[Rfam]
RNA sequence: UCAGAAAAAAGCAAACCUAUUGAAAAAUGGGGACGCAAAGUCACGGGUCUAAGGUAUUAUGUCUAUGAUGGCUGGGCUGCCUGGG
Numbered sequence: 001u002c003a004g005a006a007a008a009a010a011g012c013a014a015a016c017c018u019a020u021u022g023a024a025a026a027a028u029g030g031g032g033a034c035g036c037a038a039a040g041u042c043a044c045g046g047g048u049c050u051a052a053g054g055u056a057u058u059a060u061g062u063c064u065a066u067g068a069u070g071g072c073u074g075g076g077c078u079g080c081c082u083g084g085g
Stems, first nucleotide, its partner, number of pairs: 001085001003082002011036002016031006034071001039078004044074003047069003

A member of the RNA family "c-di-GMP-I-GGC riboswitch aptamer" from Lentibacillus halodurans, 85 nucleotides long. It scores 59 bits against the family's covariance model.